[Rfam]
RNA sequence: UAGAUGAGUUAUCUCCGAGUUUACGUAUCUAAAGCUUUUGCCAUGAGACGUAAACCGACAGGGUUUAUUUGGAAACGAAUGAGCCUCCCAUUGGAAAGGAGAAUGCCAAAGCAUUUC
Numbered sequence: 001u002a003g004a005u006g007a008g009u010u011a012u013c014u015c016c017g018a019g020u021u022u023a024c025g026u027a028u029c030u031a032a033a034g035c036u037u038u039u040g041c042c043a044u045g046a047g048a049c050g051u052a053a054a055c056c057g058a059c060a061g062g063g064u065u066u067a068u069u070u071g072g073a074a075a076c077g078a079a080u081g082a083g084c085c086u087c088c089c090a091u092u093g094g095a096a097a098g099g100a101g102a103a104u105g106c107c108a109a110a111g112c113a114u115u116u117c
Base pairs, nucleotide, nucleotide: 012102013101014100015099016098019055020054021053022052023051024050025049026048028046029045034041035040061086062085063084064083065082066081067080068079069078070077071076087094088093
Molybdenum/Tungsten riboswitch aptamer (Moco RNA motif): a 117-nucleotide RNA from Sedimentibacter saalensis. Rfam links the family to the GO terms molybdenum ion binding, regulation of gene expression and tungstate binding. Lineage of the source: Bacteria > Bacillati > Bacillota > Tissierellia > Sedimentibacter.